About this RNA:
A member of the RNA family "Small nucleolar RNA SNORA74" from Cyanoderma ruficeps, 202 nucleotides long. Rfam describes the family as follows. U19 belongs to the H/ACA class of snoRNAs. snoRNAs bind a number of proteins (including dyskerin, Gar1p and Nop10p in the case of the H/ACA class) to form snoRNP complexes. A search with the family's covariance model found it, with a score of 96 bits.
[Rfam]
RNA sequence: UCCAGUGGUAGUCAGCUGUCCAGAGCAAUACUAUGCCUGGGAUAGUGUUACACUGCUGGGAGAUAAAGAUCAGUCAUUCCUUCUGGCUGCCUUGUCACCGUUCUGGAGGCAGCUGGUGCCAGCAAGGAGUGGCACUGUGCUUCCCUGAGAGCGCACUAAAGGUUCUGUUUUCCUCUUUAGUGCUAGUCUGGAAGCCUACACA
Numbered sequence: 001u002c003c004a005g006u007g008g009u010a011g012u013c014a015g016c017u018g019u020c021c022a023g024a025g026c027a028a029u030a031c032u033a034u035g036c037c038u039g040g041g042a043u044a045g046u047g048u049u050a051c052a053c054u055g056c057u058g059g060g061a062g063a064u065a066a067a068g069a070u071c072a073g074u075c076a077u078u079c080c081u082u083c084u085g086g087c088u089g090c091c092u093u094g095u096c097a098c099c100g101u102u103c104u105g106g107a108g109g110c111a112g113c114u115g116g117u118g119c120c121a122g123c124a125a126g127g128a129g130u131g132g133c134a135c136u137g138u139g140c141u142u143c144c145c146u147g148a149g150a151g152c153g154c155a156c157u158a159a160a161g162g163u164u165c166u167g168u169u170u171u172c173c174u175c176u177u178u179a180g181u182g183c184u185a186g187u188c189u190g191g192a193a194g195c196c197u198a199c200a201c202a
Stems, first nucleotide, its partner, number of pairs: 001060009011051002015046006021039003068135001073133004078128005083122005092111001096108001098106002137197001139195006153183003157179006
The family's RNA type in Rfam is H/ACA-box small nucleolar RNA.